Rfam assigns this 206-nucleotide RNA from Mahella australiensis to the family "HNH endonuclease-associated RNA and ORF (HEARO) RNA". Rfam classes the family as a non-coding RNA gene.
RNA sequence: GUCAACUACCCACCUCUAAAGAGGUAGGCUUGUAAAAGAGCCUGGUUGACCAGCCUAAGUCUUAACUGACUACGUUAUAUAAGUCAUGGUACCUAUGGAUGCUUCUCCAGUCCGUAGCUCUAUCGCUUAGCAUUAAACAGUUCCGAGGGUAUGGUCAGUGUGUUAAGCGCAAAAAGCUUAUAUAACAUUGGCGCGGAGAGAUUGCC
Numbered sequence: 001g002u003c004a005a006c007u008a009c010c011c012a013c014c015u016c017u018a019a020a021g022a023g024g025u026a027g028g029c030u031u032g033u034a035a036a037a038g039a040g041c042c043u044g045g046u047u048g049a050c051c052a053g054c055c056u057a058a059g060u061c062u063u064a065a066c067u068g069a070c071u072a073c074g075u076u077a078u079a080u081a082a083g084u085c086a087u088g089g090u091a092c093c094u095a096u097g098g099a100u101g102c103u104u105c106u107c108c109a110g111u112c113c114g115u116a117g118c119u120c121u122a123u124c125g126c127u128u129a130g131c132a133u134u135a136a137a138c139a140g141u142u143c144c145g146a147g148g149g150u151a152u153g154g155u156c157a158g159u160g161u162g163u164u165a166a167g168c169g170c171a172a173a174a175a176g177c178u179u180a181u182a183u184a185a186c187a188u189u190g191g192c193g194c195g196g197a198g199a200g201a202u203u204g205c206c
Base pairs, nucleotide, nucleotide: 001050002049003048004047005046006045007044008043010028011027012025013024015022016021029038030037031036053192054191055190057188058071059070060069061068074186075185076184077183078182079181080180081179082178083177084176089123090122093117094116095115096114097113098112099111100110101202103200104199105198106197107196108195125168126167127166128165129164130163131162132161133160137159138158140156142154143153145150